[Rfam]
RNA: Small nucleolar RNA SNORD30
Nucleotides: 067
Stems, first nucleotide, its partner, number of pairs: 021049005028043004
Number, partner (000 for none) and nucleotide at each position: 001000u002000u003000u004000a005000g006000u007000g008000a009000u010000g011000a012000a013000u014000u015000c016000a017000g018000g019000a020000a021049u022048c023047u024046c025045g026000u027000u028043c029042g030041g031040c032000u033000g034000a035000a036000g037000g038000c039000u040031g041030c042029u043028g044000u045025u046024g047023a048022g049021g050000a051000u052000u053000c054000g055000g056000a057000u058000u059000c060000u061000g062000a063000u064000u065000u066000g067000g